[Rfam]
RNA: tRNA
RNA sequence: AGCGAGGUGGGGUAGUCAGGAAAUCCCGGCGGGCUCAUAACCCGUAGAUCAAUGGUUCAAAUCCAUUCCUCGCUA
Numbered sequence: 001a002g003c004g005a006g007g008u009g010g011g012g013u014a015g016u017c018a019g020g021a022a023a024u025c026c027c028g029g030c031g032g033g034c035u036c037a038u039a040a041c042c043c044g045u046a047g048a049u050c051a052a053u054g055g056u057u058c059a060a061a062u063c064c065a066u067u068c069c070u071c072g073c074u075a
Stems, first nucleotide, its partner, number of pairs: 001074007010027003029045005051067005